RNA sequence: CUGUCAAGUGAUGACGUGGCAGACGGACUGCCAUGUCAUCACCCAACAGUAUUUGCCAUGUCAUCACCAUGUCCACGUGGCAGUCCCUUAGAUGACGUGGCAGACACUAUUGGGUGAUGACGUGACAGUCUGUCUGUCACGUCAUCAUUUAACGGAA
Numbered sequence: 001c002u003g004u005c006a007a008g009u010g011a012u013g014a015c016g017u018g019g020c021a022g023a024c025g026g027a028c029u030g031c032c033a034u035g036u037c038a039u040c041a042c043c044c045a046a047c048a049g050u051a052u053u054u055g056c057c058a059u060g061u062c063a064u065c066a067c068c069a070u071g072u073c074c075a076c077g078u079g080g081c082a083g084u085c086c087c088u089u090a091g092a093u094g095a096c097g098u099g100g101c102a103g104a105c106a107c108u109a110u111u112g113g114g115u116g117a118u119g120a121c122g123u124g125a126c127a128g129u130c131u132g133u134c135u136g137u138c139a140c141g142u143c144a145u146c147a148u149u150u151a152a153c154g155g156a157a
Stems, first nucleotide, its partner, number of pairs: 001155004006150025032124015049107002052104002055101005071093003075089001
Description: Shown here is a 157-nucleotide RNA sequence from Cajanus cajan, a member of the family "MIR4371 microRNA precursor family". The base pairs follow the family's consensus structure, which was predicted with RNAalifold. The family has 4 seed sequences and 321 matches in Rfam 15.1.